[Rfam]
RNA sequence: CGCUUCCGUAUGCUCCCCUCCCCUUACGGUUUCGGACUGGCGGGCUUU
Numbered sequence: 001c002g003c004u005u006c007c008g009u010a011u012g013c014u015c016c017c018c019u020c021c022c023c024u025u026a027c028g029g030u031u032u033c034g035g036a037c038u039g040g041c042g043g044g045c046u047u048u
Stems, first nucleotide, its partner, number of pairs: 006043004012037001014036003022029002